[Rfam]
RNA sequence: GGGCUGGUAGAUCAGCUGGUAGAUCGCUUGCUUUGCAAGCAAGAGGUCAUGGGUUCGAGUCCCAUCCAGUCCA
Numbered sequence: 001g002g003g004c005u006g007g008u009a010g011a012u013c014a015g016c017u018g019g020u021a022g023a024u025c026g027c028u029u030g031c032u033u034u035g036c037a038a039g040c041a042a043g044a045g046g047u048c049a050u051g052g053g054u055u056c057g058a059g060u061c062c063c064a065u066c067c068a069g070u071c072c073a
Stems, first nucleotide, its partner, number of pairs: 001072007010025004027043005049065005